[Rfam]
Small nucleolar RNA SNORA65: a 131-nucleotide RNA sequence from Upupa epops. About the family: U65 belongs to the H/ACA class of snoRNAs which are thought to guide the sites of modification of uridines to pseudouridines.

RNA sequence: CCUGCCACUGUACCUGUCCUGAACCCUGUGGCUGGUACUUUCCAGUGGUGAGCUGAGAGGAAGAAGCCCAGCCCAGGAAGCAGCCCUUCCCUGCCUGUGGGUAGGCCUGUGCCGAAAGGUUGGCAACAAAC
Numbered sequence: 001c002c003u004g005c006c007a008c009u010g011u012a013c014c015u016g017u018c019c020u021g022a023a024c025c026c027u028g029u030g031g032c033u034g035g036u037a038c039u040u041u042c043c044a045g046u047g048g049u050g051a052g053c054u055g056a057g058a059g060g061a062a063g064a065a066g067c068c069c070a071g072c073c074c075a076g077g078a079a080g081c082a083g084c085c086c087u088u089c090c091c092u093g094c095c096u097g098u099g100g101g102u103a104g105g106c107c108u109g110u111g112c113c114g115a116a117a118g119g120u121u122g123g124c125a126a127c128a129a130a131c
Stems, first nucleotide, its partner, number of pairs: 005048006018035002021032001024031002066124003070121001072118001076113002081109003085105002089101003
Its family is annotated with nucleolus and RNA processing in the Gene Ontology.